[Rfam]
RNA: Small nucleolar RNA SNORA68
RNA sequence: CUUGCACCCCAACCCAAGAACCAGUGCUUCUGGUAGCAUUGGUUUAAACAGAGGUGCACACAGCAAGUGGACACUGUCACCUUUGGGAGCUGUGGCUGUGCCCCUCAAAGUGAAUGUGGAGGUUCCACAUCC
Numbered sequence: 001c002u003u004g005c006a007c008c009c010c011a012a013c014c015c016a017a018g019a020a021c022c023a024g025u026g027c028u029u030c031u032g033g034u035a036g037c038a039u040u041g042g043u044u045u046a047a048a049c050a051g052a053g054g055u056g057c058a059c060a061c062a063g064c065a066a067g068u069g070g071a072c073a074c075u076g077u078c079a080c081c082u083u084u085g086g087g088a089g090c091u092g093u094g095g096c097u098g099u100g101c102c103c104c105u106c107a108a109a110g111u112g113a114a115u116g117u118g119g120a121g122g123u124u125c126c127a128c129a130u131c132c
Stems, first nucleotide, its partner, number of pairs: 003058006019044010069125004075119001081110005086104002089101002